RNA sequence: UCCAUUGUUGUCGAUGAUGCAUUCUUGUUGGAACUGAAUCUGAGUGAUGUAACUCAAGUAUUCGUCACUACCACUGAGACAACAAUGGG
Numbered sequence: 001u002c003c004a005u006u007g008u009u010g011u012c013g014a015u016g017a018u019g020c021a022u023u024c025u026u027g028u029u030g031g032a033a034c035u036g037a038a039u040c041u042g043a044g045u046g047a048u049g050u051a052a053c054u055c056a057a058g059u060a061u062u063c064g065u066c067a068c069u070a071c072c073a074c075u076g077a078g079a080c081a082a083c084a085a086u087g088g089g
Stems, first nucleotide, its partner, number of pairs: 001089012
Dot-bracket structure: ((((((((((((.................................................................))))))))))))
Rfam assigns this 89-nucleotide RNA sequence from Galemys pyrenaicus to the family "Small nucleolar RNA SNORD70". It is annotated as a C/D-box small nucleolar RNA. snoRNA HBII-234 belongs to the C/D family of snoRNAs. It is the human orthologue of the mouse MBII-234 and is predicted to guide 2'O-ribose methylation of the small 18S rRNA on position A512. The match comes from Rfam's covariance-model search (103 bits). On this family, see Huttenhofer et al., EMBO J 2001: "RNomics: an experimental approach that identifies 201 candidates for novel, small, non-messenger RNAs in mouse".